[Rfam]
RNA: Bacterial RNase P class A
Organism: Guopingia tenuis
RNA sequence: UGAGCUGGCUAGAUGACCGCGCUUUUAAAAAGUGAGGAAAGUCCGAGCACCACAGGGCAAGGACGCCGGAUAACGUCCGGUGGAGGCGACUCCAAGGAAAGUGCAACAGAGAUAUACCGCAACUUCGGCUUUGCCGAAAUGUAAGGGUGGAAAGGCGAGGUAAGAGCUCACCGGUUUCCCAGGUAACUGGGAAAUCCUGUAAACCCCGUCCGGUGCAAGAUUGGUAGGGGAGCAUUCAAUAGCGGCCCGCUAAGCUUCAUGUAAUCGCAUGAGCCGUCUGGCGACAGGCGGCCUAGAUAGAUGGUCAUCCUUUGACAGAACUCGGCUUACGGCCUGUCUCAAAUA
Dot-bracket structure: ((((.(((.(.(((((((.((((((...))))))....[[[.[[[[[((((....[[...((((((((((.....)))))(((((....)))).)((...(((((...........(((((..((((((...)))))).)))..)).......((.(((.......))).)).(((((((((....)))))))).).)))..)))))))))))))...(((......((.(((......((((...]])))).))))).....)))......((((((((....))))))))..........)))))))...........]]]]]]]]...).))).))))....